The family of this 57-nucleotide sequence is "Transposase-1 RNA".
RNA sequence: CGUUAGGAGAAUGUCACUGUCAUUACCCUUACAAGGAUAUGGGAAUACAUUUGUAGA
Numbered sequence: 001c002g003u004u005a006g007g008a009g010a011a012u013g014u015c016a017c018u019g020u021c022a023u024u025a026c027c028c029u030u031a032c033a034a035g036g037a038u039a040u041g042g043g044a045a046u047a048c049a050u051u052u053g054u055a056g057a
Stems, first nucleotide, its partner, number of pairs: 009052006020042004027036003
The base pairs follow the family's consensus structure, which is taken from published work. The family's RNA type in Rfam is small RNA.